[Rfam]
RNA sequence: CGGCUGUAAUGGUCAAAUGGUUGAAGGCUUUCGUUAUUCUUCUUCCGCUACCCCAUCCACAUUGGAACCCCUCAGCGGCGCCCAGUGCGAAUGCUGCGGUGGCCACCCACUCGCACGGGUAACCUGCGAUCGUUGCGUGUGGCCCUAAGCAAUGAAGAUGAUACUUGAGGGAGGUUUCACUCUGCAGAGGCAUCUUCACCGUCGCAUGGCGUGCUGGAUUACGAUCGCUGGGGGCUUGGGGUAGUGGAUGAAGAUAGAGAUAUCGACUCCAAUUCUU
Dot-bracket structure: .(((.......)))....(((((.(.....(..(((..((((.(((((((((.....((...))....(((.(((((.((.((((((((.((((.((((.(.((((.(..(((((.((....))))))).......).)))).)(...)...(((((((....(((....(((......)))....)))..))))))))))).))))..))))))))....))..))))).))).....))))))))).)))).)))....).....).)))))...
Numbered sequence: 001c002g003g004c005u006g007u008a009a010u011g012g013u014c015a016a017a018u019g020g021u022u023g024a025a026g027g028c029u030u031u032c033g034u035u036a037u038u039c040u041u042c043u044u045c046c047g048c049u050a051c052c053c054c055a056u057c058c059a060c061a062u063u064g065g066a067a068c069c070c071c072u073c074a075g076c077g078g079c080g081c082c083c084a085g086u087g088c089g090a091a092u093g094c095u096g097c098g099g100u101g102g103c104c105a106c107c108c109a110c111u112c113g114c115a116c117g118g119g120u121a122a123c124c125u126g127c128g129a130u131c132g133u134u135g136c137g138u139g140u141g142g143c144c145c146u147a148a149g150c151a152a153u154g155a156a157g158a159u160g161a162u163a164c165u166u167g168a169g170g171g172a173g174g175u176u177u178c179a180c181u182c183u184g185c186a187g188a189g190g191c192a193u194c195u196u197c198a199c200c201g202u203c204g205c206a207u208g209g210c211g212u213g214c215u216g217g218a219u220u221a222c223g224a225u226c227g228c229u230g231g232g233g234g235c236u237u238g239g240g241g242u243a244g245u246g247g248a249u250g251a252a253g254a255u256a257g258a259g260a261u262a263u264c265g266a267c268u269c270c271a272a273u274u275c276u277u
Stems, first nucleotide, its partner, number of pairs: 002014003019274005025268001031262001034257003039253004044248009058064002069234003073230005079223002082217008091207004096202004101144001103142004108137001111129005117124002145149001153198007164189003171182003
This 277-nucleotide sequence from Colletotrichum fioriniae belongs to the Rfam family "Fungal signal recognition particle RNA".
Its family is annotated with signal recognition particle, plasma membrane targeting, SRP-dependent cotranslational protein targeting to membrane, signal sequence recognition and signal recognition particle, endoplasmic reticulum targeting in the Gene Ontology.
The family is grouped with related families in Rfam's "SRP clan".
NCBI's taxonomy places the organism under Eukaryota, Fungi, Glomerellales, Colletotrichum acutatum species complex, Colletotrichum fioriniae.
It scores 162 bits against the family's covariance model.
Rfam 15.1 lists 748 matches to the family in 741 species.
The family's RNA type in Rfam is non-coding RNA gene.